RNA sequence: UGAUGCACUAACUGUAAGUCGCUCUGGAUAAGAGUGUCUGCUAAAUGACUCAAG
Number, nucleotide and partner (000 for none) at each position: 001u000002g000003a000004u000005g000006c000007a000008c000009u000010a000011a000012c000013u043014g041015u040016a039017a000018g000019u000020c036021g035022c034023u033024c032025u031026g000027g000028a000029u000030a000031a025032g024033a023034g022035u021036g020037u000038c000039u016040g015041c014042u000043a013044a000045a000046u000047g000048a000049c000050u000051c000052a000053a000054g000
A member of the RNA family "UnaL2 LINE 3' element" from Coregonus sp. 'balchen', 54 nucleotides long. The literature on the family includes a 2004 paper in RNA by Baba et al., "Solution structure of an RNA stem-loop derived from the 3' conserved region of eel LINE UnaL2". About the family: The eel long interspersed element (LINE) UnaL2 and its partner short interspersed element (SINE) share a conserved 3' tail containing a stem-loop that is critical for their retrotransposition. Presumably, the first step of retrotransposition is the recognition of their 3' tails by UnaL2-encoded reverse transcriptase. The solution structure of a 17-nucleotide RNA derived from the 3' tail of UnaL2 was determined by NMR. Taxonomically the source falls in Coregonus (Eukaryota, Euteleostomi, Actinopterygii, Coregoninae). Rfam classes the family as a cis-regulatory element.